[Rfam]
RNA sequence: AUUAAAUCUAAUAAACAUGUUCGUAUAUCCUCAAUAAUAUGGCUUGAGGGUUUCUACAAGGAGCCGAAGAAUCCUAACUACGAGCACAGGACACGUCUAU
Numbered sequence: 001a002u003u004a005a006a007u008c009u010a011a012u013a014a015a016c017a018u019g020u021u022c023g024u025a026u027a028u029c030c031u032c033a034a035u036a037a038u039a040u041g042g043c044u045u046g047a048g049g050g051u052u053u054c055u056a057c058a059a060g061g062a063g064c065c066g067a068a069g070a071a072u073c074c075u076a077a078c079u080a081c082g083a084g085c086a087c088a089g090g091a092c093a094c095g096u097c098u099a100u
Stems, first nucleotide, its partner, number of pairs: 018086008029049006059075004
The family of this 100-nucleotide RNA from Paenibacillus albus is "Purine riboswitch aptamer". From the family's description: Riboswitches are metabolite binding domains within certain messenger RNAs that serve as precision sensors for their corresponding targets. Pairs were carried over by alignment from the consensus structure, which is taken from published work. Lineage of the source: Bacteria > Bacillati > Bacilli > Caryophanales > Paenibacillus.